[Rfam]
RNA sequence: CGAAAAGGCCUUUCAGGCAUCCUCUCCCAAAUGAACUAAAACGGCCGGUCCGCAAUGGGCCGGCCUUUUUUUUGCCUUUC
Numbered sequence: 001c002g003a004a005a006a007g008g009c010c011u012u013u014c015a016g017g018c019a020u021c022c023u024c025u026c027c028c029a030a031a032u033g034a035a036c037u038a039a040a041a042c043g044g045c046c047g048g049u050c051c052g053c054a055a056u057g058g059g060c061c062g063g064c065c066u067u068u069u070u071u072u073u074g075c076c077u078u079u080c
Base pairs, nucleotide, nucleotide: 008018009017010016011015043065044064045063046062047061048060049059050058051057